The family of this 67-nucleotide RNA sequence from Sporosarcina sp. HYO08 is "Bacillaceae-1 RNA". The match comes from Rfam's covariance-model search (67 bits). Rfam 15.1 lists 5,721 matches to the family in 247 species.
RNA sequence: GUAAGUGGAAGGCAGUCUAAGUGCGCGACAUCCUGUCGCGACGCCUGCAUGACCUACCUCCUGUAGG
Dot-bracket structure: ...........((((.(.......(((((.....)))))...).))))....(((((.....)))))
Numbered sequence: 001g002u003a004a005g006u007g008g009a010a011g012g013c014a015g016u017c018u019a020a021g022u023g024c025g026c027g028a029c030a031u032c033c034u035g036u037c038g039c040g041a042c043g044c045c046u047g048c049a050u051g052a053c054c055u056a057c058c059u060c061c062u063g064u065a066g067g
Stems, first nucleotide, its partner, number of pairs: 012048004017043001025039005053067005